The family of this 87-nucleotide sequence from Felis catus is "Small nucleolar RNA SNORD105". The family is grouped with related families in Rfam's "SNORD105 clan". Rfam classes the family as a C/D-box small nucleolar RNA. The sequence is in the family's curated seed alignment. The source organism's lineage runs through Eukaryota, Gnathostomata, Sarcopterygii, Eutheria and Felis. The base pairs follow the family's consensus structure. U105 belongs to the C/D family of snoRNAs. It is encoded in an intron of the Suppressor of SWI4 1 homolog (Ssf-1) (Peter Pan homolog) gene. and is predicted to guide 2'O-ribose methylation of residue U799 of the small 18S rRNA subunit. Rfam links the family to the GO terms RNA processing and nucleolus.
RNA sequence: CCCCCAACUCUCACGAUGAACCCAUAUGCCUCUGAGUUGCCAUGAUUCUGGCUUCAAAGUAAACGCUCUGAAGAGAUGGGGCGGAGG
Number, nucleotide and partner (000 for none) at each position: 001c000002c087003c086004c000005c084006a000007a000008c081009u080010c079011u000012c000013a000014c000015g000016a000017u000018g000019a000020a000021c000022c000023c000024a000025u000026a000027u000028g000029c000030c000031u000032c000033u000034g000035a000036g000037u000038u000039g000040c000041c000042a000043u000044g000045a000046u000047u000048c000049u000050g000051g000052c000053u000054u000055c000056a000057a000058a000059g000060u000061a000062a000063a000064c000065g000066c000067u000068c000069u000070g000071a000072a000073g000074a000075g000076a000077u000078g000079g010080g009081g008082c000083g000084g005085a000086g003087g002